[Rfam]
RNA sequence: GUUUAUACAUGGUUAUUGCCUCAUAUAUCCUUGAGAAUAAGGCUCAAGAGUCUCUACCGGGCUGCCGUUAACGGCCUGACUAUGAAGGCGGACAUUUCUUAGU
Numbered sequence: 001g002u003u004u005a006u007a008c009a010u011g012g013u014u015a016u017u018g019c020c021u022c023a024u025a026u027a028u029c030c031u032u033g034a035g036a037a038u039a040a041g042g043c044u045c046a047a048g049a050g051u052c053u054c055u056a057c058c059g060g061g062c063u064g065c066c067g068u069u070a071a072c073g074g075c076c077u078g079a080c081u082a083u084g085a086a087g088g089c090g091g092a093c094a095u096u097u098c099u100u101a102g103u
Base pairs, nucleotide, nucleotide: 018089019088020087021086022084023083024082025081030048031047032046033045034044035043058078059077060076061075062074063073064072
Dot-bracket structure: .................((((((((....((((((.......)))))).........(((((((.......)))))))..)))).))))..............